Shown here is a 62-nucleotide RNA from Pipistrellus kuhlii, a member of the family "Gag/pol translational readthrough site". Rfam 15.1 lists 3,368 matches to the family in 94 species. The literature on the family includes a 1990 paper in Virus Genes by ten Dam et al., "RNA pseudoknots: translational frameshifting and readthrough on viral RNAs". The organism belongs to Pipistrellus, within Eukaryota. The match comes from Rfam's covariance-model search (69 bits).
RNA sequence: UAGGGGAGUCAGGGUUCGGACCUCCUCCCCGAGCCCAGGGUAACUCUUGGAGUGGAGGGGAC
Numbered sequence: 001u002a003g004g005g006g007a008g009u010c011a012g013g014g015u016u017c018g019g020a021c022c023u024c025c026u027c028c029c030c031g032a033g034c035c036c037a038g039g040g041u042a043a044c045u046c047u048u049g050g051a052g053u054g055g056a057g058g059g060g061a062c
Base pairs, nucleotide, nucleotide: 008041009040010039012036013035014034015033016031018029019028022060023059024058025057026056027055